[Rfam]
RNA sequence: GAGAAUUUUUUUGAUAUAGAACACUCAUAUCGAUAAAAAAAUUUGAACCAUUU
Numbered sequence: 001g002a003g004a005a006u007u008u009u010u011u012u013g014a015u016a017u018a019g020a021a022c023a024c025u026c027a028u029a030u031c032g033a034u035a036a037a038a039a040a041a042u043u044u045g046a047a048c049c050a051u052u053u
Base pairs, nucleotide, nucleotide: 011033012032013031014030015029016028017027
Dot-bracket structure: ..........(((((((.........)))))))....................
Notes: A member of the RNA family "Plastid-atpF group II-D1 intron" from Carex littledalei, 53 nucleotides long. Rfam links the family to the GO term Group II intron splicing. Lineage of the source: Eukaryota > Spermatophyta > Magnoliopsida > Cyperaceae > Carex subgen. Euthyceras. For this family Rfam cites "Retrograde signaling in plants: A critical review focusing on the GUN pathway and beyond" (Richter et al., Plant Commun, 2023). The family has 49 seed sequences and 1,372 matches in Rfam 15.1. Rfam's curators write: Plastid atpF is a non-coding RNA (ncRNA) recognised in plastids. It has been reported in the intron group II-D1 region of ATP synthase (atpF) genes.